A member of the RNA family "t44 RNA" from Halotalea alkalilenta, 89 nucleotides long.
From the family's description: This family consists of a number of bacterial RNA genes of between 135 and 170 bases in length.
It is annotated as a small RNA.
The literature on the family includes a 2002 paper in Nucleic Acids Res by Tjaden et al., "Transcriptome analysis of Escherichia coli using high-density oligonucleotide probe arrays".
The family's consensus secondary structure was predicted with LocARNA.
RNA sequence: ACGCAAUCAAAACGACACCACACACGUACCGUCACAUGGUCCCGGGUGCCGCUUAGCGGUCGGAUCCAUGGGGUGCGUGGAGGCGUAAC
Numbered sequence: 001a002c003g004c005a006a007u008c009a010a011a012a013c014g015a016c017a018c019c020a021c022a023c024a025c026g027u028a029c030c031g032u033c034a035c036a037u038g039g040u041c042c043c044g045g046g047u048g049c050c051g052c053u054u055a056g057c058g059g060u061c062g063g064a065u066c067c068a069u070g071g072g073g074u075g076c077g078u079g080g081a082g083g084c085g086u087a088a089c
Base pairs, nucleotide, nucleotide: 023079024078025077026076027075028074029073030072035070036069037068038067039066040064041063042062048060049059050058051057052056